[Rfam]
RNA sequence: GGUUGAUAAGGGCAAACUUUUCGAAAGGGGAGGACGCAAAGCCUAGGGUCUAAGGAUUCUAUCUAUGAUCGCCUGGUUGCCAAG
Number, nucleotide and partner (000 for none) at each position: 001g000002g000003u000004u000005g000006a000007u000008a000009a000010g000011g000012g037013c036014a000015a000016a000017c032018u031019u030020u029021u028022c027023g000024a000025a000026a000027g022028g021029g020030g019031a018032g017033g000034a000035c000036g013037c012038a000039a000040a078041g077042c076043c075044u000045a074046g073047g072048g069049u068050c067051u000052a000053a000054g000055g063056a062057u061058u000059c000060u000061a057062u056063c055064u000065a000066u000067g050068a049069u048070c000071g000072c047073c046074u045075g043076g042077u041078u040079g000080c000081c000082a000083a000084g000
The family of this 84-nucleotide RNA from Virgibacillus salarius is "c-di-GMP-I riboswitch aptamer".
From the family's description: GEMM was predicted in a large-scale screen for bacterial structured RNA regulatory elements.